Source information
A member of the RNA family "Xanthine riboswitch aptamer (NMT1 RNA)", 69 nucleotides long. Rfam links the family to the GO term purine nucleobase binding. The sequence is in the family's curated seed alignment. The literature on the family includes a 2020 paper in RNA by Yu and Breaker, "A bacterial riboswitch class senses xanthine and uric acid to regulate genes associated with purine oxidation".

RNA sequence: UGCACGAGUAGAAGCGUUCAGCAGUGCCCCCAGCCUGGCCGGCGGGCACGGCCGGAAAUUGCUCAGCGU
Numbered sequence: 001u002g003c004a005c006g007a008g009u010a011g012a013a014g015c016g017u018u019c020a021g022c023a024g025u026g027c028c029c030c031c032a033g034c035c036u037g038g039c040c041g042g043c044g045g046g047c048a049c050g051g052c053c054g055g056a057a058a059u060u061g062c063u064c065a066g067c068g069u
Base pairs, nucleotide, nucleotide: 006064007063008062009061010060015054018056019055021052022051024049025048026047027046028045029044